RNA: Small nucleolar RNA SNORD69
RNA sequence: UAUGCAAAGCAUAUGAGAAAGCACUGAAACUGACUGUAUGAAGUUGUUCAGCCCAGCCCUGAGCUUUGUGUC
Numbered sequence: 001u002a003u004g005c006a007a008a009g010c011a012u013a014u015g016a017g018a019a020a021g022c023a024c025u026g027a028a029a030c031u032g033a034c035u036g037u038a039u040g041a042a043g044u045u046g047u048u049c050a051g052c053c054c055a056g057c058c059c060u061g062a063g064c065u066u067u068g069u070g071u072c
Stems, first nucleotide, its partner, number of pairs: 002071009